[Rfam]
RNA sequence: CUAUGAUUAAUAUUAAUCAUGGCGGAAGGAG
Numbered sequence: 001c002u003a004u005g006a007u008u009a010a011u012a013u014u015a016a017u018c019a020u021g022g023c024g025g026a027a028g029g030a031g
Base pairs, nucleotide, nucleotide: 001022002021003020004019005018006017007016008015
Rfam assigns this 31-nucleotide RNA sequence to the family "L31-Firmicutes ribosomal protein leader". Clan: Ribosomal Protein L31 Leader clan. Rfam classes the family as a cis-regulatory leader.